[Rfam]
RNA: ODC internal ribosome entry site (IRES)
RNA sequence: GUUCACUCUUCUGCGCGGGGAAGGCAUCAGCUGGAAGUUUAAGAAUCCUUUUUGUGUGAUGUUAGGAAUUUUUUUUAAAUAAUUGUCUAUUAUUUUUGUACAUUGCUACAGUCAAGUAGUUCACCAAAAGGUU
Numbered sequence: 001g002u003u004c005a006c007u008c009u010u011c012u013g014c015g016c017g018g019g020g021a022a023g024g025c026a027u028c029a030g031c032u033g034g035a036a037g038u039u040u041a042a043g044a045a046u047c048c049u050u051u052u053u054g055u056g057u058g059a060u061g062u063u064a065g066g067a068a069u070u071u072u073u074u075u076u077a078a079a080u081a082a083u084u085g086u087c088u089a090u091u092a093u094u095u096u097u098g099u100a101c102a103u104u105g106c107u108a109c110a111g112u113c114a115a116g117u118a119g120u121u122c123a124c125c126a127a128a129a130g131g132u133u
Stems, first nucleotide, its partner, number of pairs: 006065001011061001014058003018053007026046002071131006081121004
Dot-bracket structure: .....(....(..(((.(((((((.((.................)))))))))..)))..)...).....((((((....((((.................................))))....))))))..